The record is a 174-nucleotide sequence from Erysipelothrix sp. HDW6C, which matches "Lysine riboswitch aptamer" in Rfam. The base pairs follow the family's consensus structure, which is taken from published work. Rfam 15.1 lists 3,224 matches to the family in 1,923 species. Lineage of the source: Bacteria > Bacillati > Bacillota > Erysipelotrichaceae > Erysipelothrix.

[Rfam]
RNA sequence: AAUUUAAAAAGAGGUAGCGGUGCAGAAGAUUAGGAAUUGGAGCUGGCAAGCAACGAGCAUUCCGAAAGGCAACCAUCGCCGAAUGGUAAUUCAUCAUGCAAUGGAUUACUGUGGGGUUACAGGAAACACCUGUAACACUCCUUCCAUUUACCUGGAAGAGGAGCUAGAUAUCCG
Numbered sequence: 001a002a003u004u005u006a007a008a009a010a011g012a013g014g015u016a017g018c019g020g021u022g023c024a025g026a027a028g029a030u031u032a033g034g035a036a037u038u039g040g041a042g043c044u045g046g047c048a049a050g051c052a053a054c055g056a057g058c059a060u061u062c063c064g065a066a067a068g069g070c071a072a073c074c075a076u077c078g079c080c081g082a083a084u085g086g087u088a089a090u091u092c093a094u095c096a097u098g099c100a101a102u103g104g105a106u107u108a109c110u111g112u113g114g115g116g117u118u119a120c121a122g123g124a125a126a127c128a129c130c131u132g133u134a135a136c137a138c139u140c141c142u143u144c145c146a147u148u149u150a151c152c153u154g155g156a157a158g159a160g161g162a163g164c165u166a167g168a169u170a171u172c173c174g
Base pairs, nucleotide, nucleotide: 006169010165011164017079018078019077020076021075022074025070033063034062035061036060038059039058083112084111085110086109087108088107089106090105091104092103093102094101113139114138116136117135118134119133120132121131122130123129141158142157143156144155145154146153
Dot-bracket structure: .....(...((.....((((((..(.......((((.((..................))))))......)...))))))...((((((((((((......))))))))))))((.((((((((.....)))))))).)).((((((......)))))).....))...).....